[Rfam]
RNA sequence: AGGGAGGUAGCCCAAAAUCCCACACAACAGAGUAGGCA
Numbered sequence: 001a002g003g004g005a006g007g008u009a010g011c012c013c014a015a016a017a018u019c020c021c022a023c024a025c026a027a028c029a030g031a032g033u034a035g036g037c038a
Stems, first nucleotide, its partner, number of pairs: 002021004010037003
A member of the RNA family "DUF805b RNA", 38 nucleotides long.
The base pairs follow the family's consensus structure, which is taken from published work.